The family of this 173-nucleotide RNA from Muribaculum sp. An287 is "Group II catalytic intron D1-D4-3". A search with the family's covariance model found it, with a score of 148 bits. About the family: Group II introns are found in rRNA, tRNA and mRNA of organelles in fungi, plants and protists, and also in mRNA in bacteria. Pairs were carried over by alignment from the consensus structure. Its family is annotated with Group II intron splicing in the Gene Ontology.
RNA sequence: UCCAUCGUGAGUUGGAAUCUGAAGGAAGCUGGCGGCAAACAUCUGGCCUGACGUACAGGAACUUGAUAUAAGGCUAAUGGGCAUGGAUAAGACUACCGAACAAGUCAAAGUCCGAUAGCUAUACGGAAAUGCCCUAAGUAAAUCAAGCAGGUAUAAGAUGGAAAGAGCAUGUC
Numbered sequence: 001u002c003c004a005u006c007g008u009g010a011g012u013u014g015g016a017a018u019c020u021g022a023a024g025g026a027a028g029c030u031g032g033c034g035g036c037a038a039a040c041a042u043c044u045g046g047c048c049u050g051a052c053g054u055a056c057a058g059g060a061a062c063u064u065g066a067u068a069u070a071a072g073g074c075u076a077a078u079g080g081g082c083a084u085g086g087a088u089a090a091g092a093c094u095a096c097c098g099a100a101c102a103a104g105u106c107a108a109a110g111u112c113c114g115a116u117a118g119c120u121a122u123a124c125g126g127a128a129a130u131g132c133c134c135u136a137a138g139u140a141a142a143u144c145a146a147g148c149a150g151g152u153a154u155a156a157g158a159u160g161g162a163a164a165g166a167g168c169a170u171g172u173c
Stems, first nucleotide, its partner, number of pairs: 001016004006011001028173001030171002036165001040160005046152005062147006073139003077135001079134006085113004091106004